A member of the RNA family "Small nucleolar RNA SNORD75" from Castor canadensis, 60 nucleotides long. The match comes from Rfam's covariance-model search (71 bits). A reference for the family is Smith and Steitz (1998), "Classification of gas5 as a multi-small-nucleolar-RNA (snoRNA) host gene and a member of the 5'-terminal oligopyrimidine gene family reveals common features of snoRNA host genes", Mol Cell Biol.
[Rfam]
Nucleotides: 060
Base pairs, nucleotide, nucleotide: 001060002059003058004057
Number, partner (000 for none) and nucleotide at each position: 001060a002059g003058c004057c005000u006000g007000u008000g009000a010000u011000g012000g013000a014000a015000u016000a017000a018000g019000a020000g021000u022000a023000g024000u025000g026000g027000a028000c029000a030000g031000a032000a033000c034000g035000g036000a037000u038000u039000u040000c041000u042000g043000a044000a045000a046000g047000a048000u049000a050000a051000u052000u053000c054000u055000g056000a057004g058003g059002c060001u